Shown here is a 145-nucleotide sequence from Gossypium gossypioides, a member of the family "MIR7502 microRNA precursor family".
The base pairs follow the family's consensus structure, which was predicted with RNAalifold.
RNA sequence: UGAUAAAAAUUUCAUCCACUUUUACUGUUAAUAACUAGUCCUUGUACAUCAACAUGAGGUACACAUGGCAUGUCACUUGUAAUUGUUUGGUUAUUCUAUCAGCAAUGUUAAUUUUUAAUAGUUGAAAUGGAUGAAAUUUUUAAUA
Numbered sequence: 001u002g003a004u005a006a007a008a009a010u011u012u013c014a015u016c017c018a019c020u021u022u023u024a025c026u027g028u029u030a031a032u033a034a035c036u037a038g039u040c041c042u043u044g045u046a047c048a049u050c051a052a053c054a055u056g057a058g059g060u061a062c063a064c065a066u067g068g069c070a071u072g073u074c075a076c077u078u079g080u081a082a083u084u085g086u087u088u089g090g091u092u093a094u095u096c097u098a099u100c101a102g103c104a105a106u107g108u109u110a111a112u113u114u115u116u117a118a119u120a121g122u123u124g125a126a127a128u129g130g131a132u133g134a135a136a137u138u139u140u141u142a143a144u145a
Stems, first nucleotide, its partner, number of pairs: 002144001004142013018128001020126003024122003028118004033113001
NCBI's taxonomy places the organism under Eukaryota, eudicotyledons, Malvales, Malvaceae, Gossypium. Its family is annotated with miRNA-mediated post-transcriptional gene silencing and RISC complex in the Gene Ontology. A search with the family's covariance model found it, with a score of 75 bits.